[Rfam]
RNA sequence: CUUUAACAAUCUGGAACAAGCUGAAAAUUGAAACAUGACAGCUGAACAUGCAUGACUGCCUUCGGGCGGGUCGUGAUGAAUCAGCAUGUCAAUGAGUCUCUCAAAUAAUCGCAGCGCGAUGAUGAAUCGAAAGAAACAUCUUCGG
Number, nucleotide and partner (000 for none) at each position: 001c000002u000003u000004u000005a000006a000007c000008a000009a000010u000011c000012u000013g000014g000015a000016a000017c000018a000019a000020g112021c111022u000023g110024a109025a000026a000027a106028u105029u104030g000031a000032a000033a000034c094035a093036u092037g090038a089039c088040a087041g000042c000043u000044g000045a000046a000047c000048a000049u000050g000051c000052a000053u000054g000055a000056c000057u000058g000059c000060c000061u000062u000063c000064g000065g000066g000067c000068g000069g000070g000071u000072c000073g000074u000075g000076a000077u000078g000079a000080a000081u000082c000083a000084g000085c000086a000087u040088g039089u038090c037091a000092a036093u035094g034095a000096g000097u000098c000099u000100c000101u000102c000103a000104a029105a028106u027107a000108a000109u024110c023111g021112c020113a000114g000115c000116g000117c144118g143119a142120u000121g140122a139123u138124g137125a000126a000127u000128c000129g000130a000131a000132a000133g000134a000135a000136a000137c124138a123139u122140c121141u000142u119143c118144g117145g000
RNA: Salmonella enterica Typhi npcRNA 44